[Rfam]
RNA sequence: GGCCCGCCUCUUGCUUUGACUCAUCCCGGUAGCCAACGGCGGUUGCCCACAUUCCUCGACAAAGACGUCGC
Number, nucleotide and partner (000 for none) at each position: 001g000002g000003c000004c000005c000006g000007c000008c000009u000010c000011u000012u000013g000014c000015u000016u000017u000018g000019a000020c000021u000022c000023a000024u000025c000026c000027c000028g047029g046030u045031a044032g043033c042034c041035a000036a000037c000038g000039g000040c000041g034042g033043u032044u031045g030046c029047c028048c000049a000050c000051a000052u000053u000054c000055c000056u000057c000058g000059a000060c000061a000062a000063a000064g000065a000066c000067g000068u000069c000070g000071c000

Rfam assigns this 71-nucleotide RNA sequence from Pseudomonas japonica to the family "narK RNA". The base pairs follow the family's consensus structure, which is taken from published work. NCBI's taxonomy places the organism under Bacteria, Pseudomonadota, Gammaproteobacteria, Pseudomonadaceae, Pseudomonas.